[Rfam]
RNA sequence: CGUGCUCACGCGCCGAAUCCCGUAGGGAACCGGGGAACCACCACCCUGGGGUGAAUCGCGCGGAAACCGCCGUGGAAGCACGUUCGGUUUACGCGCGUAGGAGACCUUCCGCUCCGAACCCGUCAGCUAACCCGGUAGGCGGUAGGAAGGAAAGGA
Numbered sequence: 001c002g003u004g005c006u007c008a009c010g011c012g013c014c015g016a017a018u019c020c021c022g023u024a025g026g027g028a029a030c031c032g033g034g035g036a037a038c039c040a041c042c043a044c045c046c047u048g049g050g051g052u053g054a055a056u057c058g059c060g061c062g063g064a065a066a067c068c069g070c071c072g073u074g075g076a077a078g079c080a081c082g083u084u085c086g087g088u089u090u091a092c093g094c095g096c097g098u099a100g101g102a103g104a105c106c107u108u109c110c111g112c113u114c115c116g117a118a119c120c121c122g123u124c125a126g127c128u129a130a131c132c133c134g135g136u137a138g139g140c141g142g143u144a145g146g147a148a149g150g151a152a153a154g155g156a
Base pairs, nucleotide, nucleotide: 011141012140013139014138018028019027020026029136030135031134032133033132034131039048040047049121050120051119057097058096059095060094061093062092100115101114102113103112
Dot-bracket structure: ..........((((...(((.....)))((((((....((......))(((.....((((((.............................))))))..((((........))))...))).........)))))).))))...............
Shown here is a 156-nucleotide sequence from Streptomyces sp. MA5143a, a member of the family "c-di-AMP riboswitch aptamer (ydaO/yuaA leader)". Its family is annotated with cyclic-di-AMP binding and regulation of gene expression in the Gene Ontology. The match comes from Rfam's covariance-model search (97 bits). NCBI's taxonomy places the organism under Bacteria, Bacillati, Actinomycetota, Actinomycetes, Streptomyces.